[Rfam]
RNA sequence: GAUUCGGAUCACGGGAGUCCGGGGCACCGGGCUGAGAGGAAGGUCAGACCUUCGACCGUCACACCUGAUCUGGGUCAUGCCAGCGCAGGGAGGCCUCUUGCACCAGCC
Numbered sequence: 001g002a003u004u005c006g007g008a009u010c011a012c013g014g015g016a017g018u019c020c021g022g023g024g025c026a027c028c029g030g031g032c033u034g035a036g037a038g039g040a041a042g043g044u045c046a047g048a049c050c051u052u053c054g055a056c057c058g059u060c061a062c063a064c065c066u067g068a069u070c071u072g073g074g075u076c077a078u079g080c081c082a083g084c085g086c087a088g089g090g091a092g093g094c095c096u097c098u099u100g101c102a103c104c105a106g107c108c
Base pairs, nucleotide, nucleotide: 006096007095009093010092011059012058013057014056017032018031019030020029021028039053040052041051042050043049064089065088066087067086070083071082072081073080
The family of this 108-nucleotide sequence from Enemella evansiae is "TPP riboswitch aptamer (THI element)". The family's consensus secondary structure is taken from published work. Its family is annotated with thiamine pyrophosphate binding in the Gene Ontology.